Shown here is a 260-nucleotide RNA from Sporosarcina limicola, a member of the family "BsrG". By type it is a small RNA.
RNA sequence: AUGUAAUAGAAUAGAUGACUCAAGGGUGGUCGGCUCACUCCCCAAGAAAGGGGGUGUUGCCAAUGUCAGUAUUUGAAUCGUUAAUGAUUGCGAUAGCUUUUGCAACAUUAGUCGUAUUAAUGCUAGCAUUUAACCAUAAAAAAUAACCCAUCCUUGAGUUAAAGGCUCGUAGGGAUGGGUUAUUCUCACCUCGUAAGUGCUGAUCCCCUUGUUGGGAAUCUACUAUUACAACUGAUCAAUCGAUGCUCAAACAUCGAUUG
Numbered sequence: 001a002u003g004u005a006a007u008a009g010a011a012u013a014g015a016u017g018a019c020u021c022a023a024g025g026g027u028g029g030u031c032g033g034c035u036c037a038c039u040c041c042c043c044a045a046g047a048a049a050g051g052g053g054g055u056g057u058u059g060c061c062a063a064u065g066u067c068a069g070u071a072u073u074u075g076a077a078u079c080g081u082u083a084a085u086g087a088u089u090g091c092g093a094u095a096g097c098u099u100u101u102g103c104a105a106c107a108u109u110a111g112u113c114g115u116a117u118u119a120a121u122g123c124u125a126g127c128a129u130u131u132a133a134c135c136a137u138a139a140a141a142a143a144u145a146a147c148c149c150a151u152c153c154u155u156g157a158g159u160u161a162a163a164g165g166c167u168c169g170u171a172g173g174g175a176u177g178g179g180u181u182a183u184u185c186u187c188a189c190c191u192c193g194u195a196a197g198u199g200c201u202g203a204u205c206c207c208c209u210u211g212u213u214g215g216g217a218a219u220c221u222a223c224u225a226u227u228a229c230a231a232c233u234g235a236u237c238a239a240u241c242g243a244u245g246c247u248c249a250a251a252c253a254u255c256g257a258u259u260g
Base pairs, nucleotide, nucleotide: 002230003229004228005227007225008224009223011221012203014201016199017198019158020157021156022155023154024153025152026151028148029147030146036056037055039054040053041052042051043050065127066126068124069123070122071121078093079092080091104117169187204217205216206215207214237260238259239258240257241256242255243254244253245252
A search with the family's covariance model found it, with a score of 120 bits. Rfam's curators write: bsrE, bsrG and bsrH pair through intermolecular interactions with antisense sRNAs. They form type I toxin/antitoxin system that includes an mRNA encoding for a short, toxic peptide (bsrE, bsrG and bsrH) and an antitoxin that is comprised of an antisense RNA. bsrG encodes a 39-amino-acid toxin, and the 180 nucleotide antisense sRNA called SR4 acts as the antitoxin (they overlap by 123 nucleotides). SR4 interaction with the 3'UTR of bsrG RNA promotes bsrG degradation and inhibits its translation. BsrG interferes with cell envelope biosynthesis, causes membrane invaginations and delocalisation of the cell wall synthesis and initiates autolysis. bsrE RNA encodes 30 amino-acid toxin peptide. Taxonomically the source falls in Sporosarcina (Bacteria, Bacillati, Bacilli, Caryophanaceae).